[Rfam]
RNA sequence: GGCUGGUCUGAAGGGAGCCAGUUAUCUCAGUUGAUUGUUCAGUCAGUUACAGAUUAAACUCCUUGUUCUACUCUUUCCCCCCUUUUCACUACUGCACUUGACUAGCUAAA
Number, nucleotide and partner (000 for none) at each position: 001g000002g106003c105004u104005g103006g102007u101008c100009u000010g099011a098012a000013g000014g095015g000016a090017g089018c000019c000020a086021g085022u000023u000024a000025u000026c000027u000028c000029a000030g000031u000032u000033g000034a000035u000036u000037g000038u000039u000040c000041a000042g072043u000044c000045a069046g068047u000048u000049a000050c000051a000052g000053a000054u000055u000056a000057a000058a000059c000060u000061c000062c000063u000064u000065g000066u000067u000068c046069u045070a000071c000072u042073c000074u000075u000076u000077c000078c000079c000080c000081c000082c000083u000084u000085u021086u020087c000088a000089c017090u016091a000092c000093u000094g000095c014096a000097c000098u011099u010100g008101a007102c006103u005104a004105g003106c002107u000108a000109a000110a000
Background:
Shown here is a 110-nucleotide sequence from Callithrix jacchus, a member of the family "Y RNA". It scores 51 bits against the family's covariance model. NCBI's taxonomy places the organism under Eukaryota, Teleostomi, Amniota, Euarchontoglires, Callithrix. The family's RNA type in Rfam is non-coding RNA gene. Rfam describes the family as follows. Y RNAs are components of the Ro ribonucleoprotein particle (Ro RNP), in association with Ro60 and La proteins.